[Rfam]
RNA sequence: UAAAAGGGCUUCUGCCGUGAUUGGCACAGACGAGGUGAGCAUAACAACUCAUCUUGUCUGCGGAAUCCCCAUCAAGAGAUUUCGGAAGCAUAAUUUUUGCAACAGAGGCAGCUGGUGAUCACUUGUCCUGGCGCCUCA
Number, nucleotide and partner (000 for none) at each position: 001u000002a000003a000004a000005a000006g000007g000008g089009c088010u087011u086012c085013u026014g025015c024016c023017g022018u000019g000020a000021u000022u017023g016024g015025c014026a013027c060028a059029g058030a057031c056032g055033a054034g053035g052036u051037g050038a049039g000040c000041a000042u000043a000044a000045c000046a000047a000048c000049u038050c037051a036052u035053c034054u033055u032056g031057u030058c029059u028060g027061c084062g083063g082064a081065a080066u079067c078068c000069c000070c000071a000072u000073c000074a000075a000076g000077a000078g067079a066080u065081u064082u063083c062084g061085g012086a011087a010088g009089c008090a000091u000092a000093a000094u000095u000096u000097u000098u000099g000100c000101a000102a000103c000104a000105g000106a136107g135108g134109c133110a000111g132112c131113u130114g129115g128116u000117g127118a126119u125120c000121a000122c000123u000124u000125g119126u118127c117128c115129u114130g113131g112132c111133g109134c108135c107136u106137c000138a000

The record is a 138-nucleotide RNA sequence from Nothobranchius furzeri, which matches "U11 spliceosomal RNA" in Rfam. By type it is a spliceosomal small nuclear RNA. The match comes from Rfam's covariance-model search (112 bits). The family's consensus secondary structure is taken from published work.